[Rfam]
RNA sequence: CUUUCUCAGAUGAUGAAAUAUUUUGGAUGUAAAUCAAACACUACCGAUGGCGCAAAACCAUGUGGAAACUUUCCUUGUUGCCUUCCUUCUGAUCCAUGAGA
Numbered sequence: 001c002u003u004u005c006u007c008a009g010a011u012g013a014u015g016a017a018a019u020a021u022u023u024u025g026g027a028u029g030u031a032a033a034u035c036a037a038a039c040a041c042u043a044c045c046g047a048u049g050g051c052g053c054a055a056a057a058c059c060a061u062g063u064g065g066a067a068a069c070u071u072u073c074c075u076u077g078u079u080g081c082c083u084u085c086c087u088u089c090u091g092a093u094c095c096a097u098g099a100g101a
Base pairs, nucleotide, nucleotide: 003100004099005098025074026073027072
RNA: Small nucleolar RNA Z13/snr52